[Rfam]
Shown here is a 116-nucleotide RNA from Alteromonas pelagimontana, a member of the family "TPP riboswitch aptamer (THI element)". Gene Ontology term of the family: thiamine pyrophosphate binding. The base pairs follow the family's consensus structure, which is taken from published work.
RNA sequence: AACUACUUGUCGGAGUGCUCCGUUUCGCAUCUGCGAAACGAGCUGAGACCGCUAACGCGGGAUCCGUUGAACCUGAUCAGGCUAAUACCUGCGAAGGGAACAAGGCAACUUAAUGA
Numbered sequence: 001a002a003c004u005a006c007u008u009g010u011c012g013g014a015g016u017g018c019u020c021c022g023u024u025u026c027g028c029a030u031c032u033g034c035g036a037a038a039c040g041a042g043c044u045g046a047g048a049c050c051g052c053u054a055a056c057g058c059g060g061g062a063u064c065c066g067u068u069g070a071a072c073c074u075g076a077u078c079a080g081g082c083u084a085a086u087a088c089c090u091g092c093g094a095a096g097g098g099a100a101c102a103a104g105g106c107a108a109c110u111u112a113a114u115g116a
Base pairs, nucleotide, nucleotide: 006104007103008102009101010100011066012065013064014063016060017043018042019041020040050059051058052057072097073096074095078091079090080089081088